[Rfam]
RNA sequence: UGGUAAAAGAAGAAGCACCCGCUUCUCGCCUGAUUGACGCACAUAUGCAGUUGGCAGGUCGACUCAAUGUAAUUCUUACGCUAUUCGUAAUGACAUGGUGCGGGUUCUUCUACUAACCCGCACUUUUUUUAUGUU
Numbered sequence: 001u002g003g004u005a006a007a008a009g010a011a012g013a014a015g016c017a018c019c020c021g022c023u024u025c026u027c028g029c030c031u032g033a034u035u036g037a038c039g040c041a042c043a044u045a046u047g048c049a050g051u052u053g054g055c056a057g058g059u060c061g062a063c064u065c066a067a068u069g070u071a072a073u074u075c076u077u078a079c080g081c082u083a084u085u086c087g088u089a090a091u092g093a094c095a096u097g098g099u100g101c102g103g104g105u106u107c108u109u110c111u112a113c114u115a116a117c118c119c120g121c122a123c124u125u126u127u128u129u130u131a132u133g134u135u
Base pairs, nucleotide, nucleotide: 011026012025013024014023015022016021028059029058030057036052037051038050039048040047099122100121101120102119103118104117105116106115
The record is a 135-nucleotide sequence from Falsibacillus pallidus, which matches "Ribosomal protein L20 leader" in Rfam. The literature on the family includes a 1994 paper in Prog Nucleic Acid Res Mol Biol by Zengel and Lindahl, "Diverse mechanisms for regulating ribosomal protein synthesis in Escherichia coli". Lineage of the source: Bacteria > Bacillota > Bacilli > Bacillaceae > Falsibacillus. The base pairs follow the family's consensus structure, which was predicted with CMfinder. Rfam describes the family as follows. This family is a putative r-protein leader autoregulatory structure found in B. subtilis and other low-GC Gram-positive bacteria. It is located in the 5' untranslated regions of mRNAs encoding initiation factor 3 followed by ribosomal proteins L35 and L20 (infC-rpmI-rplT). Its family is annotated with regulation of gene expression in the Gene Ontology. Rfam classes the family as a cis-regulatory leader.